[Rfam]
RNA sequence: GAGGGUAUGGCCCCUCGCUAUCGGCUUGCAGGAGCGGGUGGCAAACCACCAUGAGCGGCUUGGGUCAAAAGCCCUGGUCGUGAGCGUCAUGGAAAAGGCGUCGCGAAGGCGUCAGGU
Numbered sequence: 001g002a003g004g005g006u007a008u009g010g011c012c013c014c015u016c017g018c019u020a021u022c023g024g025c026u027u028g029c030a031g032g033a034g035c036g037g038g039u040g041g042c043a044a045a046c047c048a049c050c051a052u053g054a055g056c057g058g059c060u061u062g063g064g065u066c067a068a069a070a071g072c073c074c075u076g077g078u079c080g081u082g083a084g085c086g087u088c089a090u091g092g093a094a095a096a097g098g099c100g101u102c103g104c105g106a107a108g109g110c111g112u113c114a115g116g117u
Base pairs, nucleotide, nucleotide: 001016002015003014004013005012017042018041019040020039021038022037024035025034026033027032047116049092050091051090052089053088054087055081056080058078059077060076062074063073064072065071097113098112099111100110101109102108